[Rfam]
RNA sequence: CAGGCCAGAAGAGGCGCGUUGCCCAGGUAAUCGUAUUUCAGGAGCCAGUCCGCGAAAGAUACGUGAGGGGGAGCAACGCCGAGGUGGCUGAACGCCUGGUCACGUUCGCUAUCGGCUACAGGGGCUGAAUCCCCUGGGUUGUCACCAGAAACGUUGGCAGUCCGGCGUUUCGCAAGGUGGAGCACUUCUGGGGAA
Numbered sequence: 001c002a003g004g005c006c007a008g009a010a011g012a013g014g015c016g017c018g019u020u021g022c023c024c025a026g027g028u029a030a031u032c033g034u035a036u037u038u039c040a041g042g043a044g045c046c047a048g049u050c051c052g053c054g055a056a057a058g059a060u061a062c063g064u065g066a067g068g069g070g071g072a073g074c075a076a077c078g079c080c081g082a083g084g085u086g087g088c089u090g091a092a093c094g095c096c097u098g099g100u101c102a103c104g105u106u107c108g109c110u111a112u113c114g115g116c117u118a119c120a121g122g123g124g125c126u127g128a129a130u131c132c133c134c135u136g137g138g139u140u141g142u143c144a145c146c147a148g149a150a151a152c153g154u155u156g157g158c159a160g161u162c163c164g165g166c167g168u169u170u171c172g173c174a175a176g177g178u179g180g181a182g183c184a185c186u187u188c189u190g191g192g193g194a195a
Stems, first nucleotide, its partner, number of pairs: 006190006016079007024071001032063007083113005089108006114140004119136006142180005
Rfam assigns this 195-nucleotide RNA from Enterobacteriaceae bacterium strain FGI 57 to the family "Lysine riboswitch aptamer". It scores 86 bits against the family's covariance model. Pairs were carried over by alignment from the consensus structure, which is taken from published work.